Rfam assigns this 201-nucleotide sequence from Limibacillus halophilus to the family "Group I catalytic intron".
Lineage of the source: Bacteria > Pseudomonadota > Rhodospirillales > Rhodovibrionaceae > Limibacillus.
A reference for the family is Cech (1990), "Self-splicing of group I introns", Annu Rev Biochem.
RNA sequence: CAGCUGACUUUUAGUAUUGGGAGCCCGUCUUCGGAAACGUAGCGGUGAACAGGCGUCAAAUUCGGGGAACCCGUCCGCAUUCCAGCAACGGCAAUCCCGAGCCAAGCCUCGCAAGAGGAAGGUGUAGAGACUAGACGGCGCCCACCUAAAGCUUCGGCCAAGGUGAAGGGAUAGUCCAGACCACGAACCCGAGAGGGGCGG
Numbered sequence: 001c002a003g004c005u006g007a008c009u010u011u012u013a014g015u016a017u018u019g020g021g022a023g024c025c026c027g028u029c030u031u032c033g034g035a036a037a038c039g040u041a042g043c044g045g046u047g048a049a050c051a052g053g054c055g056u057c058a059a060a061u062u063c064g065g066g067g068a069a070c071c072c073g074u075c076c077g078c079a080u081u082c083c084a085g086c087a088a089c090g091g092c093a094a095u096c097c098c099g100a101g102c103c104a105a106g107c108c109u110c111g112c113a114a115g116a117g118g119a120a121g122g123u124g125u126a127g128a129g130a131c132u133a134g135a136c137g138g139c140g141c142c143c144a145c146c147u148a149a150a151g152c153u154u155c156g157g158c159c160a161a162g163g164u165g166a167a168g169g170g171a172u173a174g175u176c177c178a179g180a181c182c183a184c185g186a187a188c189c190c191g192a193g194a195g196g197g198g199c200g201g
Stems, first nucleotide, its partner, number of pairs: 006025001008023006030041001032039001052142004057137001062100006071091004101123002107117001109115001127177001129176005145163003152156001184200002188197003